[Rfam]
RNA sequence: UGACUCCUCCAGGUCUUGGAGUAGGUCAUUGGGUGGAUCCUUUAUUUCCCUAUGUGGGCCACUGGAUGGCUCCUCCAUGUCUUGG
Numbered sequence: 001u002g003a004c005u006c007c008u009c010c011a012g013g014u015c016u017u018g019g020a021g022u023a024g025g026u027c028a029u030u031g032g033g034u035g036g037a038u039c040c041u042u043u044a045u046u047u048c049c050c051u052a053u054g055u056g057g058g059c060c061a062c063u064g065g066a067u068g069g070c071u072c073c074u075c076c077a078u079g080u081c082u083u084g085g
Base pairs, nucleotide, nucleotide: 009085010084011083012082013081015079017077018076019075020074021073024071025070026069027068028067029066030065032063033062034061035060036059038058039057040056

Shown here is an 85-nucleotide sequence from Equus caballus, a member of the family "mir-432 microRNA precursor family". Pairs were carried over by alignment from the consensus structure, which was predicted with RNAalifold. The literature on the family includes a 2005 paper in Nat Genet by Bentwich et al., "Identification of hundreds of conserved and nonconserved human microRNAs".